[Rfam]
RNA: Small nucleolar RNA Z161/Z228
RNA sequence: AUUCCAGGUGAUGAAAAUUGGAUUUAAAACUCACAACGGUCAUCAGAGACUUUGUGUCGUUGUUGAUUCGAAAUCUAUUUUUUCUGAUGGUU
Numbered sequence: 001a002u003u004c005c006a007g008g009u010g011a012u013g014a015a016a017a018u019u020g021g022a023u024u025u026a027a028a029a030c031u032c033a034c035a036a037c038g039g040u041c042a043u044c045a046g047a048g049a050c051u052u053u054g055u056g057u058c059g060u061u062g063u064u065g066a067u068u069c070g071a072a073a074u075c076u077a078u079u080u081u082u083u084c085u086g087a088u089g090g091u092u
Base pairs, nucleotide, nucleotide: 001092003090004089048058049057050056